Notes
Shown here is a 71-nucleotide RNA sequence from Pararhizobium polonicum, a member of the family "Makes More Granules Regulator RNA (mmgR)". The organism belongs to Pararhizobium, within Bacteria. It scores 62 bits against the family's covariance model. Rfam classes the family as a small RNA. Rfam describes the family as follows. SuhB later renamed mmgR (makes more granules regulator) was a putative non-coding RNA found multiple times in the Agrobacterium tumefaciens genome and related alpha-proteobacteria. Other non-coding RNAs uncovered in the same analysis include: speF, ybhL, metA, and serC.Several studies inSinorhizobium meliloti showed that suhB element is indeed a non-coding RNA:firstly it was detected on Northern blot and called Sm8RNA, secondly in an RNAseq study referred to as SmelC689.The mutant phenotype's (strain lacking the small RNA) cytoplasm contains higher content of polyhydroxybutyrate (PBH)storage granules than wild type strain. The sRNA is required to limit the PBH intracellular accumulation when the nitrogen-fixing Sinorhizobium meliloti is under condition of surplus carbon in relation to nitrogen. It has been renamed to mmgR. Further study confirmed that mmgR fine-tunes the regulation of PBH storage.Northern blot confirmed the expression of the sRNA in other rhizobia species.

[Rfam]
RNA sequence: UGUAAAUACCCUCCUUGGGUGUUUCCUCCCUAGACUUAGCCGCGCCACAAGCGCGGUUUUUUUUGUCAUCA
Numbered sequence: 001u002g003u004a005a006a007u008a009c010c011c012u013c014c015u016u017g018g019g020u021g022u023u024u025c026c027u028c029c030c031u032a033g034a035c036u037u038a039g040c041c042g043c044g045c046c047a048c049a050a051g052c053g054c055g056g057u058u059u060u061u062u063u064u065g066u067c068a069u070c071a
Stems, first nucleotide, its partner, number of pairs: 008020004040056006